[Rfam]
RNA: FMN riboswitch aptamer (RFN element)
Organism: Sedimentibacter sp. zth1
Nucleotides: 115
Stems, first nucleotide, its partner, number of pairs: 005111006017029003031095002033085002035049004044083002052061003065081005087098003
Number, partner (000 for none) and nucleotide at each position: 001000u002000a003000a004000u005111a006110u007109c008108u009107u010106c011000a012000g013000g014000g015000c016000a017029g018028g019027g020000u021000g022000a023000a024000a025000g026000u027019c028018c029017c030000g031095a032094c033085c034084g035049g036048c037047a038046g039000u040000u041000a042000u043000a044083g045082u046038c047037u048036g049035c050000g051000a052061g053060c054059c055000u056000a057000a058000c059054g060053g061052c062000u063000g064000a065081a066080u067079u068078g069077g070000u071000g072000u073000a074000a075000u076000u077069c078068c079067a080066a081065u082045a083044c084034c085033g086000a087098c088097a089096g090000u091000a092000c093000a094032g095031u096089c097088u098087g099000g100000a101000u102000g103000g104000u105000a106010g107009a108008g109007g110006a111005u112000u113000a114000u115000a